[Rfam]
RNA: Small nucleolar RNA SNORD2
Organism: Gopherus evgoodei
RNA sequence: AAGUGAGAUGAUGAUAUACCAUCUUUCGGGACUGAUCUGAAAUGGAGAGCUCUUAAUUGCUGAUCACUU
Numbered sequence: 001a002a003g004u005g006a007g008a009u010g011a012u013g014a015u016a017u018a019c020c021a022u023c024u025u026u027c028g029g030g031a032c033u034g035a036u037c038u039g040a041a042a043u044g045g046a047g048a049g050c051u052c053u054u055a056a057u058u059g060c061u062g063a064u065c066a067c068u069u
Base pairs, nucleotide, nucleotide: 001069002068003067004066005065006064